Overview:
The family of this 71-nucleotide RNA from Rodentolepis nana is "HDV ribozyme from F. prausnitzii". On this family, see Webb et al., Science 2009: "Widespread occurrence of self-cleaving ribozymes". Rfam links the family to the GO term catalytic activity. It scores 47 bits against the family's covariance model. The organism belongs to Rodentolepis, within Eukaryota. The family has 48 seed sequences and 3,803 matches in Rfam 15.1.
RNA sequence: GGGGUGCGUGAUGACUUACCUCCACGUGGUGCACCCUGAGCAACGUAUACUCAUGCGGCAAAAAAGUCUAU
Numbered sequence: 001g002g003g004g005u006g007c008g009u010g011a012u013g014a015c016u017u018a019c020c021u022c023c024a025c026g027u028g029g030u031g032c033a034c035c036c037u038g039a040g041c042a043a044c045g046u047a048u049a050c051u052c053a054u055g056c057g058g059c060a061a062a063a064a065a066g067u068c069u070a071u
Base pairs, nucleotide, nucleotide: 001037002036003035004034005033006032007031018030019029020028044057045056046055047054048053
Dot-bracket structure: (((((((..........(((.......))))))))))......(((((....)))))..............